[Rfam]
Shown here is a 93-nucleotide RNA from a Bathymodiolus septemdierum thioautotrophic gill symbiont, a member of the family "t44 RNA". By type it is a small RNA. Lineage of the source: Bacteria > Pseudomonadati > Pseudomonadota > Gammaproteobacteria > Bathymodiolus septemdierum thioautotrophic gill symbiont. The family's consensus secondary structure was predicted with LocARNA. It scores 48 bits against the family's covariance model.
RNA sequence: UAAAAGGUCUCACAAUGUAUCACACAACUUGGCAUGGCAGUCAGGGUGCUCUUUGAGAAAGAAGGGUUGGCUGCUAGAAGUUGUGGAAGGAAG
Dot-bracket structure: ......................((((((((....(((((((((....(((((..........)))))))))))))).))))))))........